The record is a 365-nucleotide RNA from Rhizobium sp. BG4, which matches "Alphaproteobacteria transfer-messenger RNA" in Rfam. Lineage of the source: Bacteria > Pseudomonadota > Hyphomicrobiales > Rhizobiaceae > Rhizobium. Rfam classes the family as a non-coding RNA gene.
[Rfam]
RNA sequence: CCUCUUCCCAUCGCUUCAGGAAAACACUAUAUCAGCCUUGCCGGUCUUCGGGCCGGCUAUGGCGAUAAAUGGGCGGUGUAAUAAGCCUAUUGGACCCGGGGGCGGUACCCGGCGCCUCCACCAAGAACAGCCGGAUGUACGGCUGCUGUUGAUGGGGGCGAAAUAGGAUCGACAAGGGUGUAAAGAUCGACUUUUCGCUCGGCAUGAUACCGCCGUUAUCGGGUCACAAGUGUAGUUGCAAACGACAACAACGCUAAGGAAUACGCUCUCGCUGCCUAAUGGCGGUGCGGGAAUUCCGCUCCAAGUCCUCUAGGUUAGCCCCUUGAGGCGGGGUCCGAAGGCACCUGGCAACAGAAGCCUUCACC
Numbered sequence: 001c002c003u004c005u006u007c008c009c010a011u012c013g014c015u016u017c018a019g020g021a022a023a024a025c026a027c028u029a030u031a032u033c034a035g036c037c038u039u040g041c042c043g044g045u046c047u048u049c050g051g052g053c054c055g056g057c058u059a060u061g062g063c064g065a066u067a068a069a070u071g072g073g074c075g076g077u078g079u080a081a082u083a084a085g086c087c088u089a090u091u092g093g094a095c096c097c098g099g100g101g102g103c104g105g106u107a108c109c110c111g112g113c114g115c116c117u118c119c120a121c122c123a124a125g126a127a128c129a130g131c132c133g134g135a136u137g138u139a140c141g142g143c144u145g146c147u148g149u150u151g152a153u154g155g156g157g158g159c160g161a162a163a164u165a166g167g168a169u170c171g172a173c174a175a176g177g178g179u180g181u182a183a184a185g186a187u188c189g190a191c192u193u194u195u196c197g198c199u200c201g202g203c204a205u206g207a208u209a210c211c212g213c214c215g216u217u218a219u220c221g222g223g224u225c226a227c228a229a230g231u232g233u234a235g236u237u238g239c240a241a242a243c244g245a246c247a248a249c250a251a252c253g254c255u256a257a258g259g260a261a262u263a264c265g266c267u268c269u270c271g272c273u274g275c276c277u278a279a280u281g282g283c284g285g286u287g288c289g290g291g292a293a294u295u296c297c298g299c300u301c302c303a304a305g306u307c308c309u310c311u312a313g314g315u316u317a318g319c320c321c322c323u324u325g326a327g328g329c330g331g332g333g334u335c336c337g338a339a340g341g342c343a344c345c346u347g348g349c350a351a352c353a354g355a356a357g358c359c360u361u362c363a364c365c
Base pairs, nucleotide, nucleotide: 040057041056042055043054044053045052046051061199062198063197064196065195071192072191074189075188076187077186086178087177088176090175091174092173096112097111098110099109100108113160114159115158116157117156118155119154200215201214202213203212205226206225207224210222211221331346332345333344334343337362338361339360340359341358342357